[Rfam]
This 54-nucleotide RNA belongs to the Rfam family "nhaA-I RNA".
The family's consensus secondary structure is taken from published work.
It is one of the family's seed sequences.
It is annotated as a riboswitch.
Acidobacteria, Alphaproteobacteria, Betaproteobacteria and Gammaproteobacteria, Verrucomicrobia, cand. division NC10.

RNA sequence: GGGUUCAGAGAUUCCUUCUCUGGAGGAGUAAGUCAGAUGGCCGGGCCGCCACUG
Number, nucleotide and partner (000 for none) at each position: 001g000002g000003g000004u000005u023006c022007a021008g020009a019010g018011a017012u000013u000014c000015c000016u000017u011018c010019u009020c008021u007022g006023g005024a000025g000026g000027a000028g000029u000030a000031a000032g000033u000034c054035a053036g052037a000038u000039g050040g049041c048042c000043g000044g000045g000046c000047c000048g041049c040050c039051a000052c036053u035054g034